This 81-nucleotide sequence from Cnephaeus nilssonii belongs to the Rfam family "mir-574 microRNA precursor family". Its family is annotated with RISC complex and miRNA-mediated post-transcriptional gene silencing in the Gene Ontology. Taxonomically the source falls in Cnephaeus (Eukaryota, Deuterostomia, Teleostomi, Sarcopterygii). Its Rfam clan is "mir-574 microRNA precursor clan". The family has 6 seed sequences and 4,084 matches in Rfam 15.1.
RNA sequence: AGACCUGGAGAGAGAAGCAGGGUCUGAUUUGUAGCCUCCAUGGAAGCUGUUGAUCAGCCCUUGCCUCUCUCUUUCUCUUGG
Dot-bracket structure: .......((((((((.((((.(.((((((..((((..........))))..)))))).).)))).))))))))........